[Rfam]
RNA sequence: AGUGAUGAUAGAGGCGCGAACGUCAAUAGUAAGCAUUCGGAGAUUUGCAGAAUCUGAGAUGGAUGGUGAAAGGGGCGAUCGCCGAAGUGUGCGUUAAACUGCUUUUACGCAUGCUGGUUUUGCAUUUAAUAAGUGCAGGGCUGUCAGAGUGAAUCUCUGGAGGGCUAUCUCACAU
Numbered sequence: 001a002g003u004g005a006u007g008a009u010a011g012a013g014g015c016g017c018g019a020a021c022g023u024c025a026a027u028a029g030u031a032a033g034c035a036u037u038c039g040g041a042g043a044u045u046u047g048c049a050g051a052a053u054c055u056g057a058g059a060u061g062g063a064u065g066g067u068g069a070a071a072g073g074g075g076c077g078a079u080c081g082c083c084g085a086a087g088u089g090u091g092c093g094u095u096a097a098a099c100u101g102c103u104u105u106u107a108c109g110c111a112u113g114c115u116g117g118u119u120u121u122g123c124a125u126u127u128a129a130u131a132a133g134u135g136c137a138g139g140g141c142u143g144u145c146a147g148a149g150u151g152a153a154u155c156u157c158u159g160g161a162g163g164g165c166u167a168u169c170u171c172a173c174a175u
Stems, first nucleotide, its partner, number of pairs: 007169005016082004021077004032067001034065006086115009096105002116142011144160006

Rfam assigns this 175-nucleotide sequence from Planococcus sp. PAMC 21323 to the family "Lysine riboswitch aptamer". The source organism's lineage runs through Bacteria, Bacillati, Bacillota, Bacilli and Planococcus.